[Rfam]
RNA: TPP riboswitch aptamer (THI element)
RNA sequence: AUAAGCUUGUCGGGGUGCCCUAAAAAUUGGGGGCUGAGAGACACCCGCUGACCUGAUCUGGAUAGUACCAGCGUAGGAAACAAGUUACCCGCCUUG
Numbered sequence: 001a002u003a004a005g006c007u008u009g010u011c012g013g014g015g016u017g018c019c020c021u022a023a024a025a026a027u028u029g030g031g032g033g034c035u036g037a038g039a040g041a042c043a044c045c046c047g048c049u050g051a052c053c054u055g056a057u058c059u060g061g062a063u064a065g066u067a068c069c070a071g072c073g074u075a076g077g078a079a080a081c082a083a084g085u086u087a088c089c090c091g092c093c094u095u096g
Stems, first nucleotide, its partner, number of pairs: 006084005011047004016041001017034005052077004058071004